[Rfam]
RNA sequence: AGAGUCGGCCAGACAGUCGCCGCCUUCGAAAGGAGGGGGAGGAAAGUCCGGACUCCACAGGGCAGGGUGAUGGCUAACGGCCAUCCGUGGCAACACGCGGAACAGGGCCACAGAGAACAGACCGCCGAUGGCCUCCGGCGCAAGCCGGAUGGAUCAGGUAAGGGUGAAACGGUGCGGUAAGAGCGCACCGCGGCGUGCGGUAACGCACACGGCACGGUAACCUCCACCCGGAGCAAUUCCAAAUAGGCAGGUGAUUGGCGCGCGCCUCGUGCGUGCGCCGGCAACGGGGCCCCCGGGAGCCUGCGGGUAGGAAGCUUGAGCGGCGCAGAGAUGCGUCGCCUAGAGGAAUGACUGUCAGCCCCGGUUUCGGCCGGGGUCACAGAAUCCGGCUUAUCGGCCGGCUCUGCGA
Numbered sequence: 001a002g003a004g005u006c007g008g009c010c011a012g013a014c015a016g017u018c019g020c021c022g023c024c025u026u027c028g029a030a031a032g033g034a035g036g037g038g039g040a041g042g043a044a045a046g047u048c049c050g051g052a053c054u055c056c057a058c059a060g061g062g063c064a065g066g067g068u069g070a071u072g073g074c075u076a077a078c079g080g081c082c083a084u085c086c087g088u089g090g091c092a093a094c095a096c097g098c099g100g101a102a103c104a105g106g107g108c109c110a111c112a113g114a115g116a117a118c119a120g121a122c123c124g125c126c127g128a129u130g131g132c133c134u135c136c137g138g139c140g141c142a143a144g145c146c147g148g149a150u151g152g153a154u155c156a157g158g159u160a161a162g163g164g165u166g167a168a169a170c171g172g173u174g175c176g177g178u179a180a181g182a183g184c185g186c187a188c189c190g191c192g193g194c195g196u197g198c199g200g201u202a203a204c205g206c207a208c209a210c211g212g213c214a215c216g217g218u219a220a221c222c223u224c225c226a227c228c229c230g231g232a233g234c235a236a237u238u239c240c241a242a243a244u245a246g247g248c249a250g251g252u253g254a255u256u257g258g259c260g261c262g263c264g265c266c267u268c269g270u271g272c273g274u275g276c277g278c279c280g281g282c283a284a285c286g287g288g289g290c291c292c293c294c295g296g297g298a299g300c301c302u303g304c305g306g307g308u309a310g311g312a313a314g315c316u317u318g319a320g321c322g323g324c325g326c327a328g329a330g331a332u333g334c335g336u337c338g339c340c341u342a343g344a345g346g347a348a349u350g351a352c353u354g355u356c357a358g359c360c361c362c363g364g365u366u367u368c369g370g371c372c373g374g375g376g377u378c379a380c381a382g383a384a385u386c387c388g389g390c391u392u393a394u395c396g397g398c399c400g401g402c403u404c405u406g407c408g409a
Stems, first nucleotide, its partner, number of pairs: 001405010011394001012356007020039002023036005044392003048389005053233004060292004065229005070084005085099001086097004100224002105222002107218003122163002124159003129156003133152002171189006190213001191211002195208005237313004247304006285295003320339008

Shown here is a 409-nucleotide sequence from Pandoraea terrae, a member of the family "Bacterial RNase P class A".